[Rfam]
Nucleotides: 056
Stems, first nucleotide, its partner, number of pairs: 001052013018035006
Number, partner (000 for none) and nucleotide at each position: 001052a002051a003050a004049g005048g006047a007046g008045c009044a010043a011042u012041a013040a014000a015000c016000c017000c018035u019034u020033c021032u022031u023030g024000a025000u026000a027000g028000a029000a030023c031022a032021a033020g034019a035018g036000g037000g038000c039000a040013u041012u042011a043010u044009u045008g046007c047006u048005c049004c050003u051002u052001u053000a054000u055000u056000u